[Rfam]
RNA sequence: UUUGCGAUGAUGAGUUAUUAAAAAUGGUGUUUGGGCAGUGGCUAGUCCGUGAGCCUUUUUUCACCUUUAAACGACUUCUCCUUCCACUGAGCAUA
Numbered sequence: 001u002u003u004g005c006g007a008u009g010a011u012g013a014g015u016u017a018u019u020a021a022a023a024a025u026g027g028u029g030u031u032u033g034g035g036c037a038g039u040g041g042c043u044a045g046u047c048c049g050u051g052a053g054c055c056u057u058u059u060u061u062c063a064c065c066u067u068u069a070a071a072c073g074a075c076u077u078c079u080c081c082u083u084c085c086a087c088u089g090a091g092c093a094u095a
Base pairs, nucleotide, nucleotide: 001095003093004092005091
RNA: Small nucleolar RNA Z152/R70/R12/
Organism: Camphora micrantha